Record summary:
A member of the RNA family "Small nucleolar RNA SNORA53" from Hucho hucho, 241 nucleotides long. Rfam describes the family as follows. The snoRNA ACA53 belongs to the H/ACA family of pseudouridylation guide snoRNAs. It is annotated as an H/ACA-box small nucleolar RNA. A search with the family's covariance model found it, with a score of 100 bits. NCBI's taxonomy places the organism under Eukaryota, Bilateria, Actinopteri, Euteleosteomorpha, Hucho. The family's consensus secondary structure was predicted with RNAalifold.
[Rfam]
RNA sequence: AACACGCUCCUUAGAUCCACCUCUGGAGGGUUCUCCUGUGCUGGUGCUGUCGUCGCUCUCUGAGUGCUUCAACUCCAGCCUGGAGGCCCUCAGCAGCUUUCUGGCCGUACAGUUGGAGGUGCUUGAGUCAUUGGUGUGUGAUAGCAGUCUACCUGCCCCUCCCAGCCCCACUGCUGCUCUGGCAACCCUAAGUUCUACUGGGGGGACUCUACCAGCGCAGCUAGGCUGGGGGGCGGACAAC
Numbered sequence: 001a002a003c004a005c006g007c008u009c010c011u012u013a014g015a016u017c018c019a020c021c022u023c024u025g026g027a028g029g030g031u032u033c034u035c036c037u038g039u040g041c042u043g044g045u046g047c048u049g050u051c052g053u054c055g056c057u058c059u060c061u062g063a064g065u066g067c068u069u070c071a072a073c074u075c076c077a078g079c080c081u082g083g084a085g086g087c088c089c090u091c092a093g094c095a096g097c098u099u100u101c102u103g104g105c106c107g108u109a110c111a112g113u114u115g116g117a118g119g120u121g122c123u124u125g126a127g128u129c130a131u132u133g134g135u136g137u138g139u140g141a142u143a144g145c146a147g148u149c150u151a152c153c154u155g156c157c158c159c160u161c162c163c164a165g166c167c168c169c170a171c172u173g174c175u176g177c178u179c180u181g182g183c184a185a186c187c188c189u190a191a192g193u194u195c196u197a198c199u200g201g202g203g204g205g206a207c208u209c210u211a212c213c214a215g216c217g218c219a220g221c222u223a224g225g226c227u228g229g230g231g232g233g234c235g236g237a238c239a240a241c
Stems, first nucleotide, its partner, number of pairs: 002139007010127005018121008026091005034084003040079004046073001048071002052067001054066004093108002096105003153236005162229001164227004175219003179215002182212001184210001186205003